[Rfam]
RNA sequence: UGAGAAUGAGAAUAGAAAAGCGAAAGCAAGUGACACUAUCACACCCUUUGGGUCAAAAGAGAUGUUGGGAUAGUCGCACCAACCAUUCUCA
Numbered sequence: 001u002g003a004g005a006a007u008g009a010g011a012a013u014a015g016a017a018a019a020g021c022g023a024a025a026g027c028a029a030g031u032g033a034c035a036c037u038a039u040c041a042c043a044c045c046c047u048u049u050g051g052g053u054c055a056a057a058a059g060a061g062a063u064g065u066u067g068g069g070a071u072a073g074u075c076g077c078a079c080c081a082a083c084c085a086u087u088c089u090c091a
Base pairs, nucleotide, nucleotide: 001091002090003089004088005087006086007085008084012039013038014037015036030077031076032075033074034073042059043053044052045051046050064083065082066081067080068079
RNA: skipping-rope RNA